[Rfam]
RNA: Group II catalytic intron D1-D4-6
Organism: Stieleria bergensis
RNA sequence: AAAGUGUCCUACGUAGAAAGUCUAGCCAACUGCUAUGGCCUCCAUCGGAGGUGCAGAGAGGGUAACCGAUCUGUGCUGAGCGUCCGACAAGGGGGGAAACGCAGGCCAGCUAUUGAGCUCCGAAAUCUGAACUUCCGUGUGCCGACCUGGUCCCUCUAUGGGGAAGGCAACACCGAUGGGUUCGUCAUUAGGCGAGAACCCAUCGGACACGGCGGAGUCACGAGAACC
Numbered sequence: 001a002a003a004g005u006g007u008c009c010u011a012c013g014u015a016g017a018a019a020g021u022c023u024a025g026c027c028a029a030c031u032g033c034u035a036u037g038g039c040c041u042c043c044a045u046c047g048g049a050g051g052u053g054c055a056g057a058g059a060g061g062g063u064a065a066c067c068g069a070u071c072u073g074u075g076c077u078g079a080g081c082g083u084c085c086g087a088c089a090a091g092g093g094g095g096g097a098a099a100c101g102c103a104g105g106c107c108a109g110c111u112a113u114u115g116a117g118c119u120c121c122g123a124a125a126u127c128u129g130a131a132c133u134u135c136c137g138u139g140u141g142c143c144g145a146c147c148u149g150g151u152c153c154c155u156c157u158a159u160g161g162g163g164a165a166g167g168c169a170a171c172a173c174c175g176a177u178g179g180g181u182u183c184g185u186c187a188u189u190a191g192g193c194g195a196g197a198a199c200c201c202a203u204c205g206g207a208c209a210c211g212g213c214g215g216a217g218u219c220a221c222g223a224g225a226a227c228c
Base pairs, nucleotide, nucleotide: 012037013036014035015034016033019031020030021029023195025193026192039095040094041093042092045087046086047085048084050081051077052075053074054073055072056071057070060067061066114222115219117218118217119216120215121214122213135212136211137210138209139208140207141168142167143166146162147161148160149159173206174205175204176203177202178201179200180199181198182197183196